[Rfam]
RNA sequence: GGUUGUGUCGGUUCGAUCGGGAUACUCAUCAAAUAAUAUUGAAAACCGAGAAAGCUUCUUACGUCUAUGGCGGGCCGCAUAAACUCUUCGGAGGUAAGUCGAUGAAAGUCGACCGGUGGAUUACAGAAACUGAGAGCUCUCAAGAAUUGUAUUGCUCGGAGUUUCAUCACAUCACCGAACAACCCCUUUC
Numbered sequence: 001g002g003u004u005g006u007g008u009c010g011g012u013u014c015g016a017u018c019g020g021g022a023u024a025c026u027c028a029u030c031a032a033a034u035a036a037u038a039u040u041g042a043a044a045a046c047c048g049a050g051a052a053a054g055c056u057u058c059u060u061a062c063g064u065c066u067a068u069g070g071c072g073g074g075c076c077g078c079a080u081a082a083a084c085u086c087u088u089c090g091g092a093g094g095u096a097a098g099u100c101g102a103u104g105a106a107a108g109u110c111g112a113c114c115g116g117u118g119g120a121u122u123a124c125a126g127a128a129a130c131u132g133a134g135a136g137c138u139c140u141c142a143a144g145a146a147u148u149g150u151a152u153u154g155c156u157c158g159g160a161g162u163u164u165c166a167u168c169a170c171a172u173c174a175c176c177g178a179a180c181a182a183c184c185c186c187u188u189u190c
Stems, first nucleotide, its partner, number of pairs: 054137003058134004063130002068125002075119004084093003098113006
This 190-nucleotide RNA sequence from Segatella baroniae belongs to the Rfam family "Bacteroidales-1 6S-Bacteroidales RNA suggested". About the family: Bacteroidales-1 was first reported in a comparative genomics-based approach of genome and metagenome sequences from Weinberg et al. 2010 In a high-resolution transcriptome map study of Bacteroides thetaiotaomicron, Ryan et al. 2020 report this sRNA as 6S RNA homologue of Bacteroides, in the study they obtain evidence of small product RNAs (pRNAs) related to 6S function. A search with the family's covariance model found it, with a score of 105 bits. The literature on the family includes a 2020 paper in Nat Commun by Ryan et al., "A high-resolution transcriptome map identifies small RNA regulation of metabolism in the gut microbe Bacteroides thetaiotaomicron".